[Rfam]
RNA: Ribosomal protein L20 leader
RNA sequence: UGAGACAAGUAGAGGCACCCGCUUCUCACCUGUUCAACGCAUACAUGCAGUUGGCUGGUUUCUAACUUCUUUAAAUAAAUGAUUAAAGUCGUGUGGGUGCAUAUAUUGUGCCCGCAUUUUUUUGUGCUU
Numbered sequence: 001u002g003a004g005a006c007a008a009g010u011a012g013a014g015g016c017a018c019c020c021g022c023u024u025c026u027c028a029c030c031u032g033u034u035c036a037a038c039g040c041a042u043a044c045a046u047g048c049a050g051u052u053g054g055c056u057g058g059u060u061u062c063u064a065a066c067u068u069c070u071u072u073a074a075a076u077a078a079a080u081g082a083u084u085a086a087a088g089u090c091g092u093g094u095g096g097g098u099g100c101a102u103a104u105a106u107u108g109u110g111c112c113c114g115c116a117u118u119u120u121u122u123u124g125u126g127c128u129u
Base pairs, nucleotide, nucleotide: 011026012025013024014023015022016021028059029058030057036052037051038050039048040047092116093115094114095113096112097111098110099109100108101107